[Rfam]
RNA sequence: ACCGUCUCACGUAACUGGCGAAAAGCCGCGCGCCACCCCGCGCUGGCAGGUGGACGACCACCGAGGGAACGUGAGGCAUCAAAACAAGCCGUUCGCCUGGGCAGCCACG
Numbered sequence: 001a002c003c004g005u006c007u008c009a010c011g012u013a014a015c016u017g018g019c020g021a022a023a024a025g026c027c028g029c030g031c032g033c034c035a036c037c038c039c040g041c042g043c044u045g046g047c048a049g050g051u052g053g054a055c056g057a058c059c060a061c062c063g064a065g066g067g068a069a070c071g072u073g074a075g076g077c078a079u080c081a082a083a084a085c086a087a088g089c090c091g092u093u094c095g096c097c098u099g100g101g102c103a104g105c106c107a108c109g
Base pairs, nucleotide, nucleotide: 004077005076006075007074008073009072010071011070012069015066016065017097018096019095020094021093050061051060052059053058088102089101090100
This 109-nucleotide RNA from Zemynaea arenosa belongs to the Rfam family "ZMP/ZTP riboswitch aptamer (pfl RNA motif)". Lineage of the source: Bacteria > Pseudomonadati > Burkholderiales > Oxalobacteraceae > Zemynaea. The base pairs follow the family's consensus structure, which is taken from published work. A search with the family's covariance model found it, with a score of 60 bits.